[Rfam]
RNA sequence: GUUGAUGACCGGUUCAUAAUAACGUUUCAGGACCCGGAGGGCAGUACUCCGGCGCCUCCACCAAAAGCCCAUCCCGUCGAUGGUGAGUUUCUGAUGGGGGCGAAAUAGGAUCGACUGGGCGGUAAAGGGAUCGCGAGUUCAGUCUCACUUCGGUGGGAUACGAUGCGACUGUCGGUAAGGUUUCGACCGGUUUGGCGUGGGCAACCCCUAUUCCAGGCAUCUGACCAAAACUCUAAAUGCCAACGAUAACGUUGUCAUGGAUGCCCGCCUCGCGGCGUAA
Numbered sequence: 001g002u003u004g005a006u007g008a009c010c011g012g013u014u015c016a017u018a019a020u021a022a023c024g025u026u027u028c029a030g031g032a033c034c035c036g037g038a039g040g041g042c043a044g045u046a047c048u049c050c051g052g053c054g055c056c057u058c059c060a061c062c063a064a065a066a067g068c069c070c071a072u073c074c075c076g077u078c079g080a081u082g083g084u085g086a087g088u089u090u091c092u093g094a095u096g097g098g099g100g101c102g103a104a105a106u107a108g109g110a111u112c113g114a115c116u117g118g119g120c121g122g123u124a125a126a127g128g129g130a131u132c133g134c135g136a137g138u139u140c141a142g143u144c145u146c147a148c149u150u151c152g153g154u155g156g157g158a159u160a161c162g163a164u165g166c167g168a169c170u171g172u173c174g175g176u177a178a179g180g181u182u183u184c185g186a187c188c189g190g191u192u193u194g195g196c197g198u199g200g201g202c203a204a205c206c207c208c209u210a211u212u213c214c215a216g217g218c219a220u221c222u223g224a225c226c227a228a229a230a231c232u233c234u235a236a237a238u239g240c241c242a243a244c245g246a247u248a249a250c251g252u253u254g255u256c257a258u259g260g261a262u263g264c265c266c267g268c269c270u271c272g273c274g275g276c277g278u279a280a
Stems, first nucleotide, its partner, number of pairs: 001143005012131004024120003028117003034052004039047001053102007
This 280-nucleotide sequence from Methylobacterium sp. Leaf99 belongs to the Rfam family "permuted transfer-messenger RNA". It is annotated as a non-coding RNA gene. Bacterial tmRNA, also known as 10Sa RNA or SsrA, is named for its dual tRNA and mRNA-like properties. Its role is to liberate the mRNA from a stalled ribosome. To accomplish this part of the tmRNA is used as a reading frame that ends in a translation stop signal. NCBI's taxonomy places the organism under Bacteria, Alphaproteobacteria, Hyphomicrobiales, Methylobacteriaceae, Methylobacterium.